Rfam assigns this 365-nucleotide RNA sequence from Rothia terrae to the family "Bacterial RNase P class A". Its family is annotated with tRNA processing, ribonuclease P activity and dimeric ribonuclease P complex in the Gene Ontology.
RNA sequence: CGGGAGAAGCAGGCAAUCGCGCGACGCUACGUAAGGUACGUCUCGAGGAAAGUCCGGGCUCCACAGCACAGGAUGGUGGAUAACAUCCACUCAGGGCAACCUGCAGGCCAGUGCCACAGAAAACAAACCGCCCACAUAGCUGGGUAAGGGUGAAAAGGUGGUGUAAGAGACCACCAGUGCCGUGGGCGACCACGGCAGCUCGGUAAACCCCAUCCGGAGCAAGGUCAAAUAGAGCAUGCCAGAGGGUAGUGCGCCCAAAUGCUCGGGUAGGCCGCUUGAGCGCCUCAGCAAUGAGGCGCCUAGAUGGAUGAUUGCCCCCACUCACAAGGUGGCGACAGAACCCGGCUCAUCGGUUCUCCCGCGUU
Number, nucleotide and partner (000 for none) at each position: 001c361002g360003g359004g358005a357006g356007a355008a354009g000010c352011a350012g316013g315014c314015a313016a312017u311018c310019g000020c045021g044022c000023g042024a041025c040026g039027c000028u000029a000030c000031g000032u000033a000034a000035g000036g000037u000038a000039c026040g025041u024042c023043u000044c021045g020046a000047g000048g000049a000050a000051a347052g346053u000054c345055c344056g343057g342058g341059c219060u218061c217062c216063a000064c000065a000066g252067c251068a250069c249070a000071g215072g214073a213074u212075g211076g090077u089078g088079g087080a086081u000082a000083a000084c000085a000086u080087c079088c078089a077090c076091u105092c103093a102094g101095g100096g000097c000098a000099a000100c095101c094102u093103g092104c000105a091106g210107g209108c000109c000110a000111g208112u207113g204114c203115c202116a000117c000118a000119g000120a000121a000122a000123a000124c000125a000126a000127a000128c149129c148130g145131c144132c143133c142134a141135c000136a000137u000138a000139g000140c000141u134142g133143g132144g131145u130146a000147a000148g129149g128150g000151u000152g000153a000154a000155a000156a000157g175158g174159u173160g172161g171162u170163g000164u000165a000166a000167g000168a000169g000170a162171c161172c160173a159174c158175c157176a000177g199178u197179g196180c195181c194182g193183u192184g191185g190186g000187c000188g000189a000190c185191c184192a183193c182194g181195g180196c179197a178198g000199c177200u000201c000202g115203g114204u113205a000206a000207a112208c111209c107210c106211c075212a074213u073214c072215c071216g062217g061218a060219g059220c000221a000222a000223g273224g272225u271226c270227a000228a000229a000230u000231a000232g264233a263234g262235c261236a260237u259238g000239c000240c000241a000242g000243a000244g256245g255246g254247u253248a000249g069250u068251g067252c066253g247254c246255c245256c244257a000258a000259a237260u236261g235262c234263u233264c232265g000266g000267g000268u000269a000270g226271g225272c224273c223274g000275c000276u000277u000278g000279a000280g299281c298282g297283c296284c295285u294286c293287a292288g000289c000290a000291a000292u287293g286294a285295g284296g283297c282298g281299c280300c000301u000302a000303g000304a000305u000306g000307g000308a000309u000310g018311a017312u016313u015314g014315c013316c012317c000318c000319c000320a000321c000322u000323c000324a000325c000326a000327a000328g000329g000330u000331g000332g000333c000334g000335a000336c000337a000338g000339a000340a000341c058342c057343c056344g055345g054346c052347u051348c000349a000350u011351c000352g010353g000354u008355u007356c006357u005358c004359c003360c002361g001362c000363g000364u000365u000